[Rfam]
RNA sequence: GCAGCAGACCGGUCUGUCGCUUAUUCUUUUGGGGAUGAGAGGAAAGUCCGGGCAACACAGGGCGCCAUCCUUCCUAACGGGAAGCUGUCUGCGAGGGCAGAGUAACGUAGCAGAAAAGAACCGCCGCGCCGUAAGGCGAGGUAAGGGUGAAAAGGUGAGGUAAGAGCUUACCGCUCCCGUCGGAAUACGGGAGGUCCGUACGUCUGAUGGGUUGUAAGGUCAUGUAUACCGACGAUAGAGGGCGGCUCGUCCGAUGUCGGGGGGUAGACCGCAAAGAGUUUGCCGGCGACGGUAAGCCAAGAUAAAUGACAGACGCUUCGUCUUUCUUUUCGGGGUGACGGAGUACAGAACCCGGCUUACAGGUCGGCUGCCUUU
Numbered sequence: 001g002c003a004g005c006a007g008a009c010c011g012g013u014c015u016g017u018c019g020c021u022u023a024u025u026c027u028u029u030u031g032g033g034g035a036u037g038a039g040a041g042g043a044a045a046g047u048c049c050g051g052g053c054a055a056c057a058c059a060g061g062g063c064g065c066c067a068u069c070c071u072u073c074c075u076a077a078c079g080g081g082a083a084g085c086u087g088u089c090u091g092c093g094a095g096g097g098c099a100g101a102g103u104a105a106c107g108u109a110g111c112a113g114a115a116a117a118g119a120a121c122c123g124c125c126g127c128g129c130c131g132u133a134a135g136g137c138g139a140g141g142u143a144a145g146g147g148u149g150a151a152a153a154g155g156u157g158a159g160g161u162a163a164g165a166g167c168u169u170a171c172c173g174c175u176c177c178c179g180u181c182g183g184a185a186u187a188c189g190g191g192a193g194g195u196c197c198g199u200a201c202g203u204c205u206g207a208u209g210g211g212u213u214g215u216a217a218g219g220u221c222a223u224g225u226a227u228a229c230c231g232a233c234g235a236u237a238g239a240g241g242g243c244g245g246c247u248c249g250u251c252c253g254a255u256g257u258c259g260g261g262g263g264g265u266a267g268a269c270c271g272c273a274a275a276g277a278g279u280u281u282g283c284c285g286g287c288g289a290c291g292g293u294a295a296g297c298c299a300a301g302a303u304a305a306a307u308g309a310c311a312g313a314c315g316c317u318u319c320g321u322c323u324u325u326c327u328u329u330u331c332g333g334g335g336u337g338a339c340g341g342a343g344u345a346c347a348g349a350a351c352c353c354g355g356c357u358u359a360c361a362g363g364u365c366g367g368c369u370g371c372c373u374u375u
Base pairs, nucleotide, nucleotide: 001371002370003369004368005367007365008364009363010362011360012314013313014312015311016310017309018308020039021038022037023036024035025034026033027032044358045357046356048355049354050353051352052351053214054213055212056211060248061247062246063245065210066209067208068207069206070084071083072082073081074080085100087098088097089096090095101205102204105203106202107201108200109199121146122145123142124141125140127138128137129136130135154172155171156170157169158168159167173196174193175192176191177190178189179188180187218270219269220268221267229260230259231258232257233256240252241251242250243249278297279296280295281294282293283292284291285290
RNA: Bacterial RNase P class A
Organism: Tannerella forsythia